[Rfam]
RNA sequence: CUGCACAGUGAACACCGAAGUGUGCUGUAUAGCUCUCUCGGCUUUGAUUCUGUGCUAGAGCAACGUCUGUUCUUCUCCACUGCAUUGAAAGGACUAUUUAUCCUUUUAAAUGUCUUCAGAAAGUCAGCACAUUA
Numbered sequence: 001c002u003g004c005a006c007a008g009u010g011a012a013c014a015c016c017g018a019a020g021u022g023u024g025c026u027g028u029a030u031a032g033c034u035c036u037c038u039c040g041g042c043u044u045u046g047a048u049u050c051u052g053u054g055c056u057a058g059a060g061c062a063a064c065g066u067c068u069g070u071u072c073u074u075c076u077c078c079a080c081u082g083c084a085u086u087g088a089a090a091g092g093a094c095u096a097u098u099u100a101u102c103c104u105u106u107u108a109a110a111u112g113u114c115u116u117c118a119g120a121a122a123g124u125c126a127g128c129a130c131a132u133u134a
Base pairs, nucleotide, nucleotide: 003055004054005053006052007051008050010049013046014045016041019038020037022035024033025032026031057073058072059071060070061069062068080119081118082117083112084111085110086109087107088106089105090104091103092102093101

The record is a 134-nucleotide sequence from Hipposideros armiger, which matches "Small nucleolar RNA SNORA22" in Rfam. The source organism's lineage runs through Eukaryota, Deuterostomia, Laurasiatheria, Yinpterochiroptera and Hipposideros. Rfam's curators write: ACA22 is a member of the H/ACA class of snoRNA that guide the sites of modification of uridines to pseudouridines. Rfam classes the family as an H/ACA-box small nucleolar RNA. It scores 136 bits against the family's covariance model. The family's consensus secondary structure was predicted with RNAfold.